[Rfam]
RNA sequence: CUCUGGUUCCACAUGAGCUCCAGGGCGGAAAGAG
Numbered sequence: 001c002u003c004u005g006g007u008u009c010c011a012c013a014u015g016a017g018c019u020c021c022a023g024g025g026c027g028g029a030a031a032g033a034g
Base pairs, nucleotide, nucleotide: 001025002024003023004022005021006018007017008016